[Rfam]
Source information: A member of the RNA family "Plastid psbT antisense RNA" from Colocasia esculenta, 38 nucleotides long. It scores 54 bits against the family's covariance model. Plastid-psbT-asRNA is an antisense RNA (asRNA) motif reported in Plastids It has been shown that psbT expression is controlled by two antisense RNAs originated from psbN transcription by the nuclear-encoded polymerase (NEP), in which the short antisense RNA hybridizes to psbT CDS, thereby stabilizing psbT transcript while blocking its translation during photooxidative stress. A reference for the family is Zghidi-Abouzid et al. (2011), "Characterization of plastid psbT sense and antisense RNAs", Nucleic Acids Res.
RNA sequence: GUGGUUGGAUCUCCAAUUUUUUGGAAUGUCCCAAAUUC
Numbered sequence: 001g002u003g004g005u006u007g008g009a010u011c012u013c014c015a016a017u018u019u020u021u022u023g024g025a026a027u028g029u030c031c032c033a034a035a036u037u038c
Stems, first nucleotide, its partner, number of pairs: 003018006020035005